[Rfam]
RNA sequence: AAUCAUACAGAAGGAGUUCUCCUGUCAGUGUCGGUGGGUCUUCAGACUGCGUUCUGCCAUGACAACUUUUGGUGGAGUCGUGUUUGCGAAGGUAUUGGAUCAUUAUGGAAUUGUCAGCUCACGAAACAGUCUUCACCUUUGCAAUGGCCGUUAUUGCAGGAGGAUACUUGUGGUUGGUGUUGGAAGCAUCACCGGGACCCAUCUCGAGUUGGAGUCAAAGUUUCGUGCUUGUCUGGUGUUGUGAAAGACCCUUCCAUCGAGUUGAGUCUCACAAUUCUGUGUCGCACUGUUGAAGCUGGGUUGCAUUGUUGGAUCUAGGACAGGCCUUGUUGGGUACGGUAGUCCUGGCUGUUCUCUCGCCUGAAAAUGGUGUGGAGGACAGCCCCCC
Numbered sequence: 001a002a003u004c005a006u007a008c009a010g011a012a013g014g015a016g017u018u019c020u021c022c023u024g025u026c027a028g029u030g031u032c033g034g035u036g037g038g039u040c041u042u043c044a045g046a047c048u049g050c051g052u053u054c055u056g057c058c059a060u061g062a063c064a065a066c067u068u069u070u071g072g073u074g075g076a077g078u079c080g081u082g083u084u085u086g087c088g089a090a091g092g093u094a095u096u097g098g099a100u101c102a103u104u105a106u107g108g109a110a111u112u113g114u115c116a117g118c119u120c121a122c123g124a125a126a127c128a129g130u131c132u133u134c135a136c137c138u139u140u141g142c143a144a145u146g147g148c149c150g151u152u153a154u155u156g157c158a159g160g161a162g163g164a165u166a167c168u169u170g171u172g173g174u175u176g177g178u179g180u181u182g183g184a185a186g187c188a189u190c191a192c193c194g195g196g197a198c199c200c201a202u203c204u205c206g207a208g209u210u211g212g213a214g215u216c217a218a219a220g221u222u223u224c225g226u227g228c229u230u231g232u233c234u235g236g237u238g239u240u241g242u243g244a245a246a247g248a249c250c251c252u253u254c255c256a257u258c259g260a261g262u263u264g265a266g267u268c269u270c271a272c273a274a275u276u277c278u279g280u281g282u283c284g285c286a287c288u289g290u291u292g293a294a295g296c297u298g299g300g301u302u303g304c305a306u307u308g309u310u311g312g313a314u315c316u317a318g319g320a321c322a323g324g325c326c327u328u329g330u331u332g333g334g335u336a337c338g339g340u341a342g343u344c345c346u347g348g349c350u351g352u353u354c355u356c357u358c359g360c361c362u363g364a365a366a367a368u369g370g371u372g373u374g375g376a377g378g379a380c381a382g383c384c385c386c387c388c
Base pairs, nucleotide, nucleotide: 196216197215198214199212200211201210218230219229220228221227
This 388-nucleotide part of an RNA from Fusarium odoratissimum belongs to the Rfam family "Ascomycota telomerase RNA". Rfam links the family to the GO terms telomere maintenance via telomerase, telomerase catalytic core complex and telomerase activity. The match comes from Rfam's covariance-model search (355 bits). It is annotated as a non-coding RNA gene. The pairing is the family consensus, mapped onto this sequence. For this family Rfam cites "The common ancestral core of vertebrate and fungal telomerase RNAs" (Qi et al., Nucleic Acids Res, 2013). The family is grouped with related families in Rfam's "Telomerase clan".